RNA sequence: CUUAAUAGCUAGCCGAAUUUCUUAACGAAGAAAACGGGGGACCCAACCAAUCGCGCGUACAACAAGUUUAAUUGUAUUCGCAGAUCCCGGGGUGAAUUCCUAACCGCGCUUCAAGCGCGAUGGAUAGGGCGGCCUGUUCGAGCCCGAACCCGACAGCUAACCUCGUAGGCUAAUUGCGAACAGGA
Numbered sequence: 001c002u003u004a005a006u007a008g009c010u011a012g013c014c015g016a017a018u019u020u021c022u023u024a025a026c027g028a029a030g031a032a033a034a035c036g037g038g039g040g041a042c043c044c045a046a047c048c049a050a051u052c053g054c055g056c057g058u059a060c061a062a063c064a065a066g067u068u069u070a071a072u073u074g075u076a077u078u079c080g081c082a083g084a085u086c087c088c089g090g091g092g093u094g095a096a097u098u099c100c101u102a103a104c105c106g107c108g109c110u111u112c113a114a115g116c117g118c119g120a121u122g123g124a125u126a127g128g129g130c131g132g133c134c135u136g137u138u139c140g141a142g143c144c145c146g147a148a149c150c151c152g153a154c155a156g157c158u159a160a161c162c163u164c165g166u167a168g169g170c171u172a173a174u175u176g177c178g179a180a181c182a183g184g185a
Stems, first nucleotide, its partner, number of pairs: 011171004018033005034166006044089001090151003098124003127145004
A member of the RNA family "c-di-AMP riboswitch aptamer (ydaO/yuaA leader)" from Cohnella luojiensis, 185 nucleotides long. From the family's description: This family represents a conserved RNA structure found upstream of the ydaO and yuaA genes in Bacillus subtilis and related genes in other bacteria. A search with the family's covariance model found it, with a score of 81 bits.